[Rfam]
Notes
A member of the RNA family "TPP riboswitch aptamer (THI element)" from Desulfonatronum thiosulfatophilum, 102 nucleotides long.
RNA sequence: AUUCAUUGCUGGGGGAGCCGUUGGGCUGAGAGGGGGCGAUCGCCCCGACCCUUGGAACCUGAUACGGACCAUGCCGUCGUAGGGAAGCAGCCACGCACUGCC
Number, nucleotide and partner (000 for none) at each position: 001a000002u000003u000004c000005a000006u090007u089008g088009c087010u086011g052012g051013g050014g049015g000016a000017g026018c025019c024020g000021u000022u000023g000024g019025g018026c017027u000028g000029a000030g000031a000032g000033g046034g045035g044036g043037c042038g000039a000040u000041c000042g037043c036044c035045c034046c033047g000048a000049c014050c013051c012052u011053u000054g000055g000056a000057a000058c083059c082060u081061g080062a000063u000064a077065c076066g075067g074068a000069c000070c000071a000072u000073g000074c067075c066076g065077u064078c000079g000080u061081a060082g059083g058084g000085a000086a010087g009088c008089a007090g006091c000092c000093a000094c000095g000096c000097a000098c000099u000100g000101c000102c000